[Rfam]
RNA sequence: AAGAGAAAAAGGGAGCUCCCUUCAGUCCAAGCAAAGAGAAGAAAAGGAAGAAAUUUACCUCCUGCAUCAUUCACACAUUCACAAUAGCAUUACCUAAUUAAUCAUCUAUUGUGUUUGAAUGAAUGAGUCAGCAGGUAAUUCAAACCAUUUACCCUUCCAUGAGUGGACUGAAGGAAGCUCUCUUCAUCUAUUCA
Numbered sequence: 001a002a003g004a005g006a007a008a009a010a011g012g013g014a015g016c017u018c019c020c021u022u023c024a025g026u027c028c029a030a031g032c033a034a035a036g037a038g039a040a041g042a043a044a045a046g047g048a049a050g051a052a053a054u055u056u057a058c059c060u061c062c063u064g065c066a067u068c069a070u071u072c073a074c075a076c077a078u079u080c081a082c083a084a085u086a087g088c089a090u091u092a093c094c095u096a097a098u099u100a101a102u103c104a105u106c107u108a109u110u111g112u113g114u115u116u117g118a119a120u121g122a123a124u125g126a127g128u129c130a131g132c133a134g135g136u137a138a139u140u141c142a143a144a145c146c147a148u149u150u151a152c153c154c155u156u157c158c159a160u161g162a163g164u165g166g167a168c169u170g171a172a173g174g175a176a177g178c179u180c181u182c183u184u185c186a187u188c189u190a191u192u193c194a
Stems, first nucleotide, its partner, number of pairs: 013180005019174002023170007036157001059134002062131003068125004076117001
The family of this 194-nucleotide RNA from Trifolium subterraneum is "MIR159 microRNA precursor family". It scores 110 bits against the family's covariance model. Lineage of the source: Eukaryota > Gunneridae > fabids > Papilionoideae > Trifolium. Rfam links the family to the GO terms miRNA-mediated post-transcriptional gene silencing and RISC complex.